[Rfam]
RNA sequence: UAUAGUCUUCAGGGCAAGGUAAGAAGGCAUAAAUUGUUGCCUUCAAUUCCUGACCGGCGGUGAUAAGCAAAUAGCUUUAAGCCCGCGAGCCAAAAGCCGAUUCGGUGAGAUUCCGAAGCCGACAGUAUAGUCUGGAUGAGAGAAGACCAGU
Numbered sequence: 001u002a003u004a005g006u007c008u009u010c011a012g013g014g015c016a017a018g019g020u021a022a023g024a025a026g027g028c029a030u031a032a033a034u035u036g037u038u039g040c041c042u043u044c045a046a047u048u049c050c051u052g053a054c055c056g057g058c059g060g061u062g063a064u065a066a067g068c069a070a071a072u073a074g075c076u077u078u079a080a081g082c083c084c085g086c087g088a089g090c091c092a093a094a095a096g097c098c099g100a101u102u103c104g105g106u107g108a109g110a111u112u113c114c115g116a117a118g119c120c121g122a123c124a125g126u127a128u129a130g131u132c133u134g135g136a137u138g139a140g141a142g143a144a145g146a147c148c149a150g151u
Base pairs, nucleotide, nucleotide: 003149005147006146007145008144009143010142017051018050019049053131054130055121056120057086058085059084060083081119082118089097090096101117102116103115104114105113123134124133125132
The record is a 151-nucleotide RNA from Candidatus Atribacteria bacterium MT.SAG.1, which matches "FMN riboswitch aptamer (RFN element)" in Rfam. The family's consensus secondary structure is taken from published work. About the family: The RFN element is a highly conserved domain that is found frequently in the 5'-untranslated regions of prokaryotic mRNAs that encode for flavin mononucleotide (FMN) biosynthesis and transport proteins. This element is a metabolite-dependent riboswitch that directly binds FMN in the absence of proteins. In Bacillus subtilis, the riboswitch most likely controls gene expression by causing premature transcription termination within the 5' untranslated region of the ribDEAHT operon and precluding access to the ribosome-binding site of ypaA mRNA.The FMN riboswitch structure, reported in present an FMN-bound six-stem junction, adopts a butterfly-like scaffold, stapled together by opposingly directed but nearly identically folded peripheral domains.